Source information: Shown here is a 117-nucleotide RNA from Athelia sp. TMB, a member of the family "U5 spliceosomal RNA". NCBI's taxonomy places the organism under Eukaryota, Fungi, Agaricomycetes, Agaricomycetidae, Athelia. U5 RNA is a component of both types of known spliceosome. Rfam classes the family as a spliceosomal small nuclear RNA.
[Rfam]
RNA sequence: AGCGGCAGAGGUAUAGACAAACUGACUAUUCUCUCGCCUUUUACUAGAGAAUACCGUGUCCGUACCUCAACGAAAUGUCGCUUUACCAAUUUUUCACUAUUCAGCUUGGCCUGAACG
Numbered sequence: 001a002g003c004g005g006c007a008g009a010g011g012u013a014u015a016g017a018c019a020a021a022c023u024g025a026c027u028a029u030u031c032u033c034u035c036g037c038c039u040u041u042u043a044c045u046a047g048a049g050a051a052u053a054c055c056g057u058g059u060c061c062g063u064a065c066c067u068c069a070a071c072g073a074a075a076u077g078u079c080g081c082u083u084u085a086c087c088a089a090u091u092u093u094u095c096a097c098u099a100u101u102c103a104g105c106u107u108g109g110c111c112u113g114a115a116c117g
Base pairs, nucleotide, nucleotide: 003080004079005078006077009067010066011065012064013063014062016060017059018058019057027053028052029051030050031049032048033047034046097117100115101114102113103112104111